About this RNA: A member of the RNA family "Makes More Granules Regulator RNA (mmgR)" from Starkeya nomas, 80 nucleotides long. A reference for the family is Corbino et al. (2005), "Evidence for a second class of S-adenosylmethionine riboswitches and other regulatory RNA motifs in alpha-proteobacteria", Genome Biol. The family is grouped with related families in Rfam's "suhB sRNA clan". By type it is a small RNA. Taxonomically the source falls in Starkeya (Bacteria, Pseudomonadati, Alphaproteobacteria, Hyphomicrobiales).

[Rfam]
Nucleotides: 080
Base pairs, nucleotide, nucleotide: 008020009019010018011017039065040064041063042062043061044060045059046058047057048056049055
Number, partner (000 for none) and nucleotide at each position: 001000u002000g003000u004000c005000g006000c007000c008020g009019c010018c011017c012000u013000c014000c015000u016000u017011g018010g019009g020008c021000g022000u023000u024000u025000c026000c027000u028000c029000c030000c031000u032000a033000g034000a035000c036000u037000u038000g039065g040064g041063c042062c043061g044060c045059u046058u047057g048056c049055g050000c051000g052000c053000u054000g055049c056048g057047u058046a059045a060044g061043c062042g063041g064040c065039c066000u067000c068000u069000u070000u071000c072000u073000u074000u075000u076000c077000g078000g079000c080000c